[Rfam]
RNA sequence: GAGAUUUCGUCAGGACCUUCCUCCUCCCAGGUCCUGGCGGAUACGGCCAGCUUUCACCUCCUCCCGAUUGCUGGCCGAACAAAACGACACCCGCCGGACCUCCUCCCCCGGCGGGUGUUGUGC
Number, nucleotide and partner (000 for none) at each position: 001g000002a000003g000004a000005u000006u000007u040008c039009g038010u000011c036012a035013g034014g033015a032016c031017c030018u000019u000020c000021c000022u000023c000024c000025u000026c000027c000028c000029a000030g017031g016032u015033c014034c013035u012036g011037g000038c009039g008040g007041a000042u000043a000044c000045g076046g075047c074048c073049a072050g071051c070052u000053u000054u067055c000056a000057c000058c000059u000060c000061c000062u000063c000064c000065c000066g000067a054068u000069u000070g051071c050072u049073g048074g047075c046076c045077g000078a000079a000080c000081a000082a000083a000084a000085c000086g000087a118088c117089a116090c115091c114092c113093g112094c111095c110096g109097g108098a000099c000100c000101u000102c000103c000104u000105c000106c000107c000108c097109c096110g095111g094112c093113g092114g091115g090116u089117g088118u087119u000120g000121u000122g000123c000
RNA: Alphaproteobacterial ar14
Organism: Mesorhizobium sp. L-8-10